[Rfam]
RNA sequence: GCGGGCCCGGCUCGAUCAUCCCCCCCGGAGCCGGGCCCCUACGGCCCCUGGACUCCCCCCUCCGGGGGCCGUCCACU
Numbered sequence: 001g002c003g004g005g006c007c008c009g010g011c012u013c014g015a016u017c018a019u020c021c022c023c024c025c026c027g028g029a030g031c032c033g034g035g036c037c038c039c040u041a042c043g044g045c046c047c048c049u050g051g052a053c054u055c056c057c058c059c060c061u062c063c064g065g066g067g068g069c070c071g072u073c074c075a076c077u
Base pairs, nucleotide, nucleotide: 003038004037005036006035007034008033009032010031011030012029013028041072042071043070044069045068046067047066048065049064050063051062052061
This 77-nucleotide RNA sequence from Stackebrandtia albiflava belongs to the Rfam family "6C RNA". Rfam links the family to the GO term sporulation. The family's RNA type in Rfam is cis-regulatory element. For this family Rfam cites "Identification of 22 candidate structured RNAs in bacteria using the CMfinder comparative genomics pipeline" (Weinberg et al., Nucleic Acids Res, 2007). Taxonomically the source falls in Stackebrandtia (Bacteria, Bacillati, Actinomycetota, Glycomycetales).